Overview: Shown here is a 97-nucleotide RNA sequence from Histidinibacterium aquaticum, a member of the family "Rhodo-rpoB RNA". The base pairs follow the family's consensus structure, which is taken from published work. The source organism's lineage runs through Bacteria, Pseudomonadati, Pseudomonadota, Paracoccaceae and Histidinibacterium.

RNA sequence: GGGUCGGGCGGGCGCCGGUGGGACGGCGCCCAGGGAUAGACCCCCGUGACAACCCCUCUCGGAAGAGGCUUCCGCCGUGGCCCCGGCGGCGGGACGG
Numbered sequence: 001g002g003g004u005c006g007g008g009c010g011g012g013c014g015c016c017g018g019u020g021g022g023a024c025g026g027c028g029c030c031c032a033g034g035g036a037u038a039g040a041c042c043c044c045c046g047u048g049a050c051a052a053c054c055c056c057u058c059u060c061g062g063a064a065g066a067g068g069c070u071u072c073c074g075c076c077g078u079g080g081c082c083c084c085g086g087c088g089g090c091g092g093g094a095c096g097g
Stems, first nucleotide, its partner, number of pairs: 001043005010031008069096001071094002073091005